[Rfam]
RNA sequence: AGCCUUUCGAAUUUGUGCAGAGAUUUCGUCAGACACCAAACCGUUAGUGCUGAUCAGACUUCCAAGAUAAGUGAAGCU
Numbered sequence: 001a002g003c004c005u006u007u008c009g010a011a012u013u014u015g016u017g018c019a020g021a022g023a024u025u026u027c028g029u030c031a032g033a034c035a036c037c038a039a040a041c042c043g044u045u046a047g048u049g050c051u052g053a054u055c056a057g058a059c060u061u062c063c064a065a066g067a068u069a070a071g072u073g074a075a076g077c078u
Stems, first nucleotide, its partner, number of pairs: 002077002005074002008071001011068003016064002020061003024058003028054003
Dot-bracket structure: .((.((.(..(((..((..(((.(((.(((.....................))).)))))).)).)))..).)).)).

mir-3492 microRNA precursor family: a 78-nucleotide sequence from Schistosoma margrebowiei. NCBI's taxonomy places the organism under Eukaryota, Rhabditophora, Schistosomatoidea, Schistosomatidae, Schistosoma. Its family is annotated with miRNA-mediated post-transcriptional gene silencing and RISC complex in the Gene Ontology.